A member of the RNA family "Streptomyces-metH RNA" from Streptomyces coryli, 122 nucleotides long. It is annotated as a small RNA. Taxonomically the source falls in Streptomyces (Bacteria, Bacillati, Actinomycetota, Streptomycetaceae).

[Rfam]
RNA sequence: CUCGCCCGGGCGGAAAACCGGCGCGCUCCCUGUGACAGGGGCCGAGUAGGCUGGCCCGCGUGCGCCGCCCCAUGCGGCCGCGCAUAGCCGACAGCCGUCGCACUCCAGGGAGACUCUCCAUG
Numbered sequence: 001c002u003c004g005c006c007c008g009g010g011c012g013g014a015a016a017a018c019c020g021g022c023g024c025g026c027u028c029c030c031u032g033u034g035a036c037a038g039g040g041g042c043c044g045a046g047u048a049g050g051c052u053g054g055c056c057c058g059c060g061u062g063c064g065c066c067g068c069c070c071c072a073u074g075c076g077g078c079c080g081c082g083c084a085u086a087g088c089c090g091a092c093a094g095c096c097g098u099c100g101c102a103c104u105c106c107a108g109g110g111a112g113a114c115u116c117u118c119c120a121u122g
Stems, first nucleotide, its partner, number of pairs: 061084004067079001069077002087101002090099003